Source information:
The family of this 265-nucleotide RNA sequence from a Candidatus Latescibacterota bacterium is "Bacterial large signal recognition particle RNA". It scores 112 bits against the family's covariance model. On this family, see Rosenblad et al., RNA Biol 2009: "Kinship in the SRP RNA family". By type it is a non-coding RNA gene. Rfam's curators write: The signal recognition particle (SRP) is a universally conserved ribonucleoprotein involved in the co-translational targeting of proteins to membranes.
RNA sequence: UCGUGCUAGAUGGAGGGUUGGCGGUCCUCUGUAACCCGAAACCCGCCCACGCGGGAUUGAUAAGGCACAAUGAGUAUUUUGCAAAAGGAUAAGCUUUAAUUAAGAGCGAUGUUGAAGAUCGGGUCCGGCAAUAUUCUUACCUAUAAACCCCGUCAGAAUCGGAAGAUAGCAACGGUAAGUAGUGUUAAGAGUAGUUGGCGGGAAACCUGGUUGGAGUCGCGAUUAAUUACAAGCCCCUUGUGUAAUCUGCAAAGGUGUUGCACGA
Numbered sequence: 001u002c003g004u005g006c007u008a009g010a011u012g013g014a015g016g017g018u019u020g021g022c023g024g025u026c027c028u029c030u031g032u033a034a035c036c037c038g039a040a041a042c043c044c045g046c047c048c049a050c051g052c053g054g055g056a057u058u059g060a061u062a063a064g065g066c067a068c069a070a071u072g073a074g075u076a077u078u079u080u081g082c083a084a085a086a087g088g089a090u091a092a093g094c095u096u097u098a099a100u101u102a103a104g105a106g107c108g109a110u111g112u113u114g115a116a117g118a119u120c121g122g123g124u125c126c127g128g129c130a131a132u133a134u135u136c137u138u139a140c141c142u143a144u145a146a147a148c149c150c151c152g153u154c155a156g157a158a159u160c161g162g163a164a165g166a167u168a169g170c171a172a173c174g175g176u177a178a179g180u181a182g183u184g185u186u187a188a189g190a191g192u193a194g195u196u197g198g199c200g201g202g203a204a205a206c207c208u209g210g211u212u213g214g215a216g217u218c219g220c221g222a223u224u225a226a227u228u229a230c231a232a233g234c235c236c237c238u239u240g241u242g243u244a245a246u247c248u249g250c251a252a253a254g255g256u257g258u259u260g261c262a263c264g265a
Base pairs, nucleotide, nucleotide: 001265002264003263004262005261006260009058010057011056012030013029014028015027016026017025018024019023035055036054037053038052065258066257067256068255071252074250075249076248079245080244081243082242083241085239086238087237088236093230098228099227100226101225102224103223106220107219108218109217110216117212118211119210120209121208122207123206124205125201126200127199129197130196131192132191135190136189137188138187141182142181143180144179150175151174152173153172158167159166160165
Taxonomically the source falls in Candidatus Latescibacterota (Bacteria, Pseudomonadati).